A member of the RNA family "GP20-a RNA", 99 nucleotides long.

RNA sequence: AUUCGUCUUGCCUGCCGACAUUUAAAUGCAGGCCCGCCCUGUGCGCGGAGAGGCCGCGGAUUUAGAAGCCAAAUCGAUUUAUGGGGCGGAGAAAGGAAC
Number, nucleotide and partner (000 for none) at each position: 001a000002u000003u000004c000005g019006u018007c017008u000009u000010g033011c032012c031013u030014g029015c000016c000017g007018a006019c005020a000021u000022u000023u000024a000025a000026a000027u000028g000029c014030a013031g012032g011033c010034c000035c088036g087037c086038c085039c084040u000041g000042u000043g000044c058045g057046c056047g055048g000049a000050g000051a000052g000053g000054c000055c047056g046057c045058g044059g000060a000061u000062u000063u000064a000065g000066a000067a000068g000069c000070c000071a000072a000073a000074u000075c000076g000077a000078u000079u000080u000081a000082u000083g000084g039085g038086g037087c036088g035089g000090a000091g000092a000093a000094a000095g000096g000097a000098a000099c000